[Rfam]
RNA sequence: AUCACCACUGCUGCACCAAGAGCACACGCAUCUUCGGGGGGACUUGGAAUUCCCAAGAAUGGCCUUUGAGAAAUGCUGGCAAUAAUUUCUUUAAAUUCCAUCUCUUAGUUUUCCAUGGAAACAUCAAGAAACC
Numbered sequence: 001a002u003c004a005c006c007a008c009u010g011c012u013g014c015a016c017c018a019a020g021a022g023c024a025c026a027c028g029c030a031u032c033u034u035c036g037g038g039g040g041g042a043c044u045u046g047g048a049a050u051u052c053c054c055a056a057g058a059a060u061g062g063c064c065u066u067u068g069a070g071a072a073a074u075g076c077u078g079g080c081a082a083u084a085a086u087u088u089c090u091u092u093a094a095a096u097u098c099c100a101u102c103u104c105u106u107a108g109u110u111u112u113c114c115a116u117g118g119a120a121a122c123a124u125c126a127a128g129a130a131a132c133c
Base pairs, nucleotide, nucleotide: 006079010076011075016070017068018067019066020065022063023062026060039054040053041052042051086131087130088129089128090127091126096121097120099118
This 133-nucleotide sequence from Acinonyx jubatus belongs to the Rfam family "ODC internal ribosome entry site (IRES)".
Gene Ontology term of the family: ribosome binding.
Rfam 15.1 lists 437 matches to the family in 128 species.
The family's consensus secondary structure was predicted with mfold.
The match comes from Rfam's covariance-model search (96 bits).